[Rfam]
RNA sequence: CGGUGAGGUAGAGGUGCAGACAGAAAGAGUAAUCAAUAGGAGAAUGACAACGUUGAUCAUUGAUGAAAGGGCUGUUUGCCGAAGUGUAGGAAGUUGUCAAACUUUCUAUUGCUGGUAUAGUUUUGAAUAAAGGCUGUACUGUCAUGUUCAAAUGUGCAUGGAGAACUACUGAUCGA
Numbered sequence: 001c002g003g004u005g006a007g008g009u010a011g012a013g014g015u016g017c018a019g020a021c022a023g024a025a026a027g028a029g030u031a032a033u034c035a036a037u038a039g040g041a042g043a044a045u046g047a048c049a050a051c052g053u054u055g056a057u058c059a060u061u062g063a064u065g066a067a068a069g070g071g072c073u074g075u076u077u078g079c080c081g082a083a084g085u086g087u088a089g090g091a092a093g094u095u096g097u098c099a100a101a102c103u104u105u106c107u108a109u110u111g112c113u114g115g116u117a118u119a120g121u122u123u124u125g126a127a128u129a130a131a132g133g134c135u136g137u138a139c140u141g142u143c144a145u146g147u148u149c150a151a152a153u154g155u156g157c158a159u160g161g162a163g164a165a166c167u168a169c170u171g172a173u174c175g176a
Base pairs, nucleotide, nucleotide: 007170008169009168010167011166016079017078018077019076020075021074022073023072032064033063034062035061036060037059039057083113084112085111086110087108088107089106090105091104092103093102094101114140115139116138117137118136119135120134121133122132123131124130142161143160144159145158146157147156

Lysine riboswitch aptamer: a 176-nucleotide sequence from Virgibacillus phasianinus. The organism belongs to Virgibacillus, within Bacteria.